[Rfam]
RNA sequence: GCGCGCUGCUUCUUGGACGUUUCCUCCCUAAACUUGGCGGUGCCUCACGGCGCCGCCUUUUUUUUGCUUGGG
Numbered sequence: 001g002c003g004c005g006c007u008g009c010u011u012c013u014u015g016g017a018c019g020u021u022u023c024c025u026c027c028c029u030a031a032a033c034u035u036g037g038c039g040g041u042g043c044c045u046c047a048c049g050g051c052g053c054c055g056c057c058u059u060u061u062u063u064u065u066g067c068u069u070g071g072g
Stems, first nucleotide, its partner, number of pairs: 008018001010016001036057009
The family of this 72-nucleotide RNA from Lichenicola cladoniae is "Makes More Granules Regulator RNA (mmgR)".
The pairing is the family consensus, mapped onto this sequence.
Taxonomically the source falls in Lichenicola (Bacteria, Pseudomonadati, Pseudomonadota, Acetobacterales).
It is annotated as a small RNA.
The literature on the family includes a 2016 paper in Mol Phylogenet Evol by Lagares et al., "Phylogenetic distribution and evolutionary pattern of an alpha-proteobacterial small RNA gene that controls polyhydroxybutyrate accumulation in Sinorhizobium meliloti".